[Rfam]
RNA sequence: GCCCGGUUAGCUCAGUCGGUAGAGCAUUCGGCUUUUAUGGGGUUCAUGUCCCGAUGAUACCGAAAUGUCGGGGGUUCGAGCCCCCCAUUGGGCG
Numbered sequence: 001g002c003c004c005g006g007u008u009a010g011c012u013c014a015g016u017c018g019g020u021a022g023a024g025c026a027u028u029c030g031g032c033u034u035u036u037a038u039g040g041g042g043u044u045c046a047u048g049u050c051c052c053g054a055u056g057a058u059a060c061c062g063a064a065a066u067g068u069c070g071g072g073g074g075u076u077c078g079a080g081c082c083c084c085c086c087a088u089u090g091g092g093c094g
Stems, first nucleotide, its partner, number of pairs: 001093007010025004027064005070086005